Shown here is a 96-nucleotide sequence from Microcebus murinus, a member of the family "G-CSF factor stem-loop destabilising element (SLDE)". Rfam describes the family as follows. This family represents the granulocyte colony-stimulating factor stem-loop destabilising element (G-CSF SLDE). G-CSF is secreted by fibroblasts and endothelial cells in response to the inflammatory mediators interleukin-1 (IL-1) and tumour necrosis factor alpha and by activated macrophages. The synthesis of G-CSF is regulated both transcriptionally and through control of mRNA stability. In unstimulated cells G-CSF mRNA is unstable but becomes stabilised in response to IL-1 or tumour necrosis factor alpha, and also in the case of monocytes and macrophages, in response to lipopolysaccharide. Taxonomically the source falls in Microcebus (Eukaryota, Opisthokonta, Euteleostomi, Primates). By type it is a cis-regulatory element.

[Rfam]
RNA sequence: CCGAGGAUACCCACCAUGGGGCCCUCGGGAGAUCAGAAGGUCUCCCACAUGGGAGACGAGACAUCCCUGUUUAAUAUUUAAACAGCAGUGUUCCCC
Numbered sequence: 001c002c003g004a005g006g007a008u009a010c011c012c013a014c015c016a017u018g019g020g021g022c023c024c025u026c027g028g029g030a031g032a033u034c035a036g037a038a039g040g041u042c043u044c045c046c047a048c049a050u051g052g053g054a055g056a057c058g059a060g061a062c063a064u065c066c067c068u069g070u071u072u073a074a075u076a077u078u079u080a081a082a083c084a085g086c087a088g089u090g091u092u093c094c095c096c
Base pairs, nucleotide, nucleotide: 003026004025005024006023008021010020011019012018033061034060040057041056042055043054044053045052046051067085068084069083070082071081072080073079074078